[Rfam]
RNA sequence: GGACACCGUGCGGGAGAGUCCCGGUGCAGGAAGCCGGGCGCCGAAGGAGCAAACCCUUCCGGAAUCUCUCAGGCACACGGACCGUACGGUCGAG
Numbered sequence: 001g002g003a004c005a006c007c008g009u010g011c012g013g014g015a016g017a018g019u020c021c022c023g024g025u026g027c028a029g030g031a032a033g034c035c036g037g038g039c040g041c042c043g044a045a046g047g048a049g050c051a052a053a054c055c056c057u058u059c060c061g062g063a064a065u066c067u068c069u070c071a072g073g074c075a076c077a078c079g080g081a082c083c084g085u086a087c088g089g090u091c092g093a094g
Stems, first nucleotide, its partner, number of pairs: 006089008020038004040074003043070002047068003054062001
The family of this 94-nucleotide RNA sequence from Pseudonocardia sp. C8 is "Glycine riboswitch aptamer". The literature on the family includes a 2004 paper in Science by Mandal et al., "A glycine-dependent riboswitch that uses cooperative binding to control gene expression". NCBI's taxonomy places the organism under Bacteria, Actinomycetota, Pseudonocardiales, Pseudonocardiaceae, Pseudonocardia.